Notes: A member of the RNA family "ASpks TB sRNA" from Streptomyces albus, 75 nucleotides long. It scores 59 bits against the family's covariance model. The base pairs follow the family's consensus structure, which is taken from published work.
[Rfam]
RNA sequence: CUUGAGCGCGCCCAGCCACAAGGGUUCGCCCCCGGCCCGGUCCGCCCCGUAGGCGGCCAGCACGGCCUGUGCCUC
Numbered sequence: 001c002u003u004g005a006g007c008g009c010g011c012c013c014a015g016c017c018a019c020a021a022g023g024g025u026u027c028g029c030c031c032c033c034g035g036c037c038c039g040g041u042c043c044g045c046c047c048c049g050u051a052g053g054c055g056g057c058c059a060g061c062a063c064g065g066c067c068u069g070u071g072c073c074u075c
Stems, first nucleotide, its partner, number of pairs: 014026004031071001033069001038065001043060001047056003